RNA sequence: AUUUAAUUAAGUGGUGACACGUGUCAAGACCUUAUUGGAGGGGAAAAUAAAUUAAUAAAAUUAAAUAUAAAUAAUUAAAAUCCUCCAAUAAGGUCUUGACACGUGUCACCACUU
Number, nucleotide and partner (000 for none) at each position: 001a000002u000003u000004u000005a000006a000007u000008u000009a000010a000011g000012u000013g000014g000015u000016g000017a000018c000019a000020c000021g102022u101023g000024u000025c098026a097027a096028g000029a094030c093031c092032u091033u000034a089035u088036u087037g000038g000039a000040g000041g000042g000043g000044a000045a000046a000047a000048u000049a000050a000051a000052u000053u000054a000055a000056u000057a000058a000059a000060a000061u000062u000063a000064a000065a000066u000067a000068u000069a000070a000071a000072u000073a000074a000075u000076u000077a000078a000079a000080a000081u000082c000083c000084u000085c000086c000087a036088a035089u034090a000091a032092g031093g030094u029095c000096u027097u026098g025099a000100c000101a022102c021103g000104u000105g000106u000107c000108a000109c000110c000111a000112c000113u000114u000
This 114-nucleotide RNA from Hibiscus trionum belongs to the Rfam family "MIR1520 microRNA precursor family". NCBI's taxonomy places the organism under Eukaryota, Tracheophyta, Euphyllophyta, Magnoliopsida, Hibiscus.